Fluoride riboswitch aptamer (crcB RNA motif): a 75-nucleotide RNA from Caldicellulosiruptor owensensis. Rfam links the family to the GO terms positive regulation of gene expression and response to fluoride.
[Rfam]
RNA sequence: AAAUAUCAGGGCGAUGGAGUUCGCCUUAAAGUGCCACGGGGAAUACCCUUGUUGGCUGAUAACUCCUGUCCGUAU
Dot-bracket structure: .........[[[[..((((((]]]].......((((................))))....)))))).........